RNA sequence: CGGGCGCGGCCGCCGAGUCCGCGACCCUCGCGGAGCCGGGGACCCACCUCUCCCCGGGGUGAAUCGGCGCGCGUCUCCCGGCGUGCGCCGUAGGGCCAACUUCCAGGCCCGAACCCGUCAGCUAACCCGGUAGGCGGCAUGGAAGAAGGA
Numbered sequence: 001c002g003g004g005c006g007c008g009g010c011c012g013c014c015g016a017g018u019c020c021g022c023g024a025c026c027c028u029c030g031c032g033g034a035g036c037c038g039g040g041g042a043c044c045c046a047c048c049u050c051u052c053c054c055c056g057g058g059g060u061g062a063a064u065c066g067g068c069g070c071g072c073g074u075c076u077c078c079c080g081g082c083g084u085g086c087g088c089c090g091u092a093g094g095g096c097c098a099a100c101u102u103c104c105a106g107g108c109c110c111g112a113a114c115c116c117g118u119c120a121g122c123u124a125a126c127c128c129g130g131u132a133g134g135c136g137g138c139a140u141g142g143a144a145g146a147a148g149g150a
Base pairs, nucleotide, nucleotide: 011136012135013134014133018034019033020032021031022030023029035131036130037129038128039127040126045056057116058115059114065090066089067088068087069086070085071084072083073082074081075080093110094109095108096107
RNA: c-di-AMP riboswitch aptamer (ydaO/yuaA leader)
Organism: Thermopolyspora flexuosa